[Rfam]
RNA sequence: AGCUGAAAGGGCCUCUCGUGAUGAGCCUUCUCUCUGAUGGCUGUGGUGGUGAUGAGCAGCAACCCCGAGCCUCUAAGAAGUUGACUGAAGAGGCUGUUCCUCA
Numbered sequence: 001a002g003c004u005g006a007a008a009g010g011g012c013c014u015c016u017c018g019u020g021a022u023g024a025g026c027c028u029u030c031u032c033u034c035u036g037a038u039g040g041c042u043g044u045g046g047u048g049g050u051g052a053u054g055a056g057c058a059g060c061a062a063c064c065c066c067g068a069g070c071c072u073c074u075a076a077g078a079a080g081u082u083g084a085c086u087g088a089a090g091a092g093g094c095u096g097u098u099c100c101u102c103a
Base pairs, nucleotide, nucleotide: 007098008097010095011094012093013092014091015090

Description:
Small nucleolar RNA SNORD125: a 103-nucleotide RNA sequence from Scytalopus superciliaris. Lineage of the source: Eukaryota > Chordata > Craniata > Teleostomi > Scytalopus. A search with the family's covariance model found it, with a score of 71 bits. Pairs were carried over by alignment from the consensus structure, which was predicted with WAR. Clan: SNORD61 clan.